RNA sequence: CUCCACAGCUUCUGGUGUGCAGCUGUUCUUAUGGUGGCAGUUAUAGCAUUCCUCUGUGAGAAAGAAAUUGUUACAUGACUAAACACCUCUUUCUUAGCAAAACAAAGUGGGCACAUGUGUGACAAACACGA
Numbered sequence: 001c002u003c004c005a006c007a008g009c010u011u012c013u014g015g016u017g018u019g020c021a022g023c024u025g026u027u028c029u030u031a032u033g034g035u036g037g038c039a040g041u042u043a044u045a046g047c048a049u050u051c052c053u054c055u056g057u058g059a060g061a062a063a064g065a066a067a068u069u070g071u072u073a074c075a076u077g078a079c080u081a082a083a084c085a086c087c088u089c090u091u092u093c094u095u096a097g098c099a100a101a102a103c104a105a106a107g108u109g110g111g112c113a114c115a116u117g118u119g120u121g122a123c124a125a126a127c128a129c130g131a
Base pairs, nucleotide, nucleotide: 004058005057006056018045019044021042022041023040024039025038073120074119075118076117077116086111087110088109089107090106091105092104094102
RNA: Small nucleolar RNA SNORA41
Organism: Pipistrellus kuhlii